This 368-nucleotide RNA sequence from Renibacterium salmoninarum belongs to the Rfam family "transfer-messenger RNA". Taxonomically the source falls in Renibacterium salmoninarum (Bacteria, Bacillati, Actinomycetes, Micrococcales). The family's consensus secondary structure is taken from published work. A search with the family's covariance model found it, with a score of 164 bits.

RNA sequence: GGGGAUGACUGGUUUCGACGAUGUUAGUCGCGACAGGUGAAGCGGGCCGAGGAUGCAGAAUUAUCUCGUAAACGCUGUCUGCAAACCAAUAAGUGCCAAUUCUAAGCGCACUGACUUCGCUCUCGCUGCCUAAAGCAGCCUGACGGUCCGUCAAGCCGGGGAUGCUCUCUACCCGGACCUUGACGUCAUUUAGAGAGCCACUGCUUUGCGUUGUUGCCGUUGCAACGUGAGGGACUUUUAGAUGGCUGGGCCUGGCAGCGACUUGUUUGCAUGAUCACUGGGGCCAAGAAAAACCGACGCAAACUGCGCCCGGAGAAGACCUGGCAACACGACAUCGGACGGGGGUUCAAUUCCCCCCAUCUCCACUA
Numbered sequence: 001g002g003g004g005a006u007g008a009c010u011g012g013u014u015u016c017g018a019c020g021a022u023g024u025u026a027g028u029c030g031c032g033a034c035a036g037g038u039g040a041a042g043c044g045g046g047c048c049g050a051g052g053a054u055g056c057a058g059a060a061u062u063a064u065c066u067c068g069u070a071a072a073c074g075c076u077g078u079c080u081g082c083a084a085a086c087c088a089a090u091a092a093g094u095g096c097c098a099a100u101u102c103u104a105a106g107c108g109c110a111c112u113g114a115c116u117u118c119g120c121u122c123u124c125g126c127u128g129c130c131u132a133a134a135g136c137a138g139c140c141u142g143a144c145g146g147u148c149c150g151u152c153a154a155g156c157c158g159g160g161g162a163u164g165c166u167c168u169c170u171a172c173c174c175g176g177a178c179c180u181u182g183a184c185g186u187c188a189u190u191u192a193g194a195g196a197g198c199c200a201c202u203g204c205u206u207u208g209c210g211u212u213g214u215u216g217c218c219g220u221u222g223c224a225a226c227g228u229g230a231g232g233g234a235c236u237u238u239u240a241g242a243u244g245g246c247u248g249g250g251c252c253u254g255g256c257a258g259c260g261a262c263u264u265g266u267u268u269g270c271a272u273g274a275u276c277a278c279u280g281g282g283g284c285c286a287a288g289a290a291a292a293a294c295c296g297a298c299g300c301a302a303a304c305u306g307c308g309c310c311c312g313g314a315g316a317a318g319a320c321c322u323g324g325c326a327a328c329a330c331g332a333c334a335u336c337g338g339a340c341g342g343g344g345g346u347u348c349a350a351u352u353c354c355c356c357c358c359a360u361c362u363c364c365a366c367u368a
Stems, first nucleotide, its partner, number of pairs: 001364007019337007032325001034323005043312005048068005054083006121143002125139005149185006156176002159173002164198007204232009216246005249285005256280003260276002265304004272297001341357005
Dot-bracket structure: (((((((...........(((((((......(.(((((....((((([[[[[.((((((....]]]]].........)))))).....................................((..(((((.....)))))..)).....[[[[[[.[[.[[...(((((((.]].]]...]]]]]]......))))))).....(((((((((...[[[[[...))))))))).........]]]]]..(((((..(((.((...[[[[...[..)).))))))))...........]...]]]]...)))))......))))).).....)))))))...(((((.......))))))))))))....